[Rfam]
RNA sequence: CGCAACCAAUUUUUACAUAGGUCAAGUUACCAAUAAAAAACCCCGAUUUAUCGGGGUUUUUUAUUGGUAUUUUGGCUAUCGAAACAUUGGGCUAUAGGCCCUUUUUUA
Numbered sequence: 001c002g003c004a005a006c007c008a009a010u011u012u013u014u015a016c017a018u019a020g021g022u023c024a025a026g027u028u029a030c031c032a033a034u035a036a037a038a039a040a041c042c043c044c045g046a047u048u049u050a051u052c053g054g055g056g057u058u059u060u061u062u063a064u065u066g067g068u069a070u071u072u073u074g075g076c077u078a079u080c081g082a083a084a085c086a087u088u089g090g091g092c093u094a095u096a097g098g099c100c101c102u103u104u105u106u107u108a
Stems, first nucleotide, its partner, number of pairs: 037060009089101004

The family of this 108-nucleotide sequence from Thorsellia anophelis is "Gammaprotebacteria rimP leader". It is annotated as a cis-regulatory leader. The source organism's lineage runs through Bacteria, Pseudomonadati, Gammaproteobacteria, Thorselliaceae and Thorsellia anophelis. It scores 62 bits against the family's covariance model. For this family Rfam cites "Premature terminator analysis sheds light on a hidden world of bacterial transcriptional attenuation" (Naville and Gautheret, Genome Biol, 2010). The base pairs follow the family's consensus structure, which is taken from published work.